MIR9563 microRNA precursor family: a 124-nucleotide RNA from Brassica oleracea.
Taxonomically the source falls in Brassica oleracea (Eukaryota, Gunneridae, malvids, Brassicales).

RNA sequence: GGAAGUUAAAAAACUGUUUCUUAACUUUUAACUAAAAAUUUAAGAAUCGGUUCUUAAAUAAGAACUUUAAGAACCGUUUCUUAACUUUUUUAGUUAAAAGUUAAAAAACAGUUUUUUAAAUUUC
Number, nucleotide and partner (000 for none) at each position: 001g124002g123003a122004a121005g000006u119007u118008a117009a116010a115011a114012a113013a112014c111015u110016g109017u108018u107019u106020c000021u104022u103023a102024a101025c100026u099027u098028u097029u096030a095031a094032c093033u092034a091035a090036a089037a088038a087039u000040u084041u083042a082043a081044g080045a079046a078047u000048c000049g000050g000051u000052u000053c000054u000055u000056a000057a000058a000059u000060a000061a000062g000063a000064a000065c000066u000067u000068u000069a000070a000071g000072a000073a000074c000075c000076g000077u000078u046079u045080c044081u043082u042083a041084a040085c000086u000087u038088u037089u036090u035091u034092a033093g032094u031095u030096a029097a028098a027099a026100g025101u024102u023103a022104a021105a000106a019107a018108a017109c016110a015111g014112u013113u012114u011115u010116u009117u008118a007119a006120a000121u004122u003123u002124c001